This 62-nucleotide sequence from Microcebus murinus belongs to the Rfam family "U7 small nuclear RNA". It scores 59 bits against the family's covariance model. Rfam's curators write: Animal histone pre-mRNAs are spliced by a different mechanism than nuclear pre-mRNAs and self-splicing introns. This processing involves the U7 snRNP, which contains only one RNA species: U7. The 5' end of U7 RNA is thought to base-pair to a conserved spacer element downstream of the cleavage site in histone pre-mRNA. This family contains a number of annotated U7 pseudogenes.

RNA sequence: AAGUGUUACAGGUCUUUUAGAAUUUGUCUAGCAGGUUUUCCAGUUCUCAUGGGAAAACUCCC
Numbered sequence: 001a002a003g004u005g006u007u008a009c010a011g012g013u014c015u016u017u018u019a020g021a022a023u024u025u026g027u028c029u030a031g032c033a034g035g036u037u038u039u040c041c042a043g044u045u046c047u048c049a050u051g052g053g054a055a056a057a058c059u060c061c062c
Stems, first nucleotide, its partner, number of pairs: 034059008043050002